[Rfam]
RNA sequence: GAAAUAAAGAAGGAGCACCCGCUUCUCGCCUGAGUGAAAAAUUUUGCUGGGCUGAUAGGUUUCAGACUACAUAGGUGUAGUGUGAGUUUGGGUGCGAGUUCGAAUGUGAACUCGUUUUUUUGUUUCUCU
Numbered sequence: 001g002a003a004a005u006a007a008a009g010a011a012g013g014a015g016c017a018c019c020c021g022c023u024u025c026u027c028g029c030c031u032g033a034g035u036g037a038a039a040a041a042u043u044u045u046g047c048u049g050g051g052c053u054g055a056u057a058g059g060u061u062u063c064a065g066a067c068u069a070c071a072u073a074g075g076u077g078u079a080g081u082g083u084g085a086g087u088u089u090g091g092g093u094g095c096g097a098g099u100u101c102g103a104a105u106g107u108g109a110a111c112u113c114g115u116u117u118u119u120u121u122g123u124u125u126c127u128c129u
Base pairs, nucleotide, nucleotide: 011026012025013024014023015022016021028052029051030050034047035046036045037044038043094115095114096113097112098111099110100109101108102107
RNA: Ribosomal protein L20 leader